[Rfam]
RNA sequence: CAACGGCGAUCGAACGCCGUCGUCUGGCAAGUGGCCUGUCCCCCGCCCGCGUCAGAUGUCAGGACAAAGGCCUAUCCCCCUCUCCGGGCCUUUGUCCGGUUAUGCAGAAAACCGCCAUGGCUCCGCCUCCGCCAUGGCGGUUUUUC
Numbered sequence: 001c002a003a004c005g006g007c008g009a010u011c012g013a014a015c016g017c018c019g020u021c022g023u024c025u026g027g028c029a030a031g032u033g034g035c036c037u038g039u040c041c042c043c044c045g046c047c048c049g050c051g052u053c054a055g056a057u058g059u060c061a062g063g064a065c066a067a068a069g070g071c072c073u074a075u076c077c078c079c080c081u082c083u084c085c086g087g088g089c090c091u092u093u094g095u096c097c098g099g100u101u102a103u104g105c106a107g108a109a110a111a112c113c114g115c116c117a118u119g120g121c122u123c124c125g126c127c128u129c130c131g132c133c134a135u136g137g138c139g140g141u142u143u144u145u146c
Base pairs, nucleotide, nucleotide: 023056024055025054026053027052028051033047034046035045062097063096064095065094066093067092068091069090070089071088072087109142112140113139114138115137116136117135118134119133120132121131